[Rfam]
RNA: Small nucleolar RNA SNORD79
Organism: Oryzias javanicus
Nucleotides: 081
Base pairs, nucleotide, nucleotide: 002080003079004078005077006076007075
Number, partner (000 for none) and nucleotide at each position: 001000c002080g003079c004078u005077g006076u007075u008000a009000a010000u011000g012000a013000u014000g015000a016000u017000u018000u019000u020000u021000g022000u023000u024000a025000u026000a027000a028000a029000a030000c031000a032000a033000u034000g035000g036000g037000a038000a039000u040000c041000u042000c043000u044000c045000u046000g047000a048000g049000a050000a051000a052000a053000g054000u055000g056000a057000a058000g059000a060000g061000g062000g063000c064000u065000u066000u067000u068000a069000u070000u071000c072000u073000g074000a075007a076006g077005c078004a079003g080002u081000u